The record is a 67-nucleotide RNA from Pipistrellus kuhlii, which matches "mir-9256 microRNA precursor family" in Rfam.
It scores 81 bits against the family's covariance model.
Rfam 15.1 lists 31,772 matches to the family in 5 species.
RNA sequence: AGCUACACUGAGUGGCCAGAUUAUUAUGAUAUCAGAACACAUAAUAAUCUAGCCAUUCAGUGUAUAU
Numbered sequence: 001a002g003c004u005a006c007a008c009u010g011a012g013u014g015g016c017c018a019g020a021u022u023a024u025u026a027u028g029a030u031a032u033c034a035g036a037a038c039a040c041a042u043a044a045u046a047a048u049c050u051a052g053c054c055a056u057u058c059a060g061u062g063u064a065u066a067u
Stems, first nucleotide, its partner, number of pairs: 004064013019049010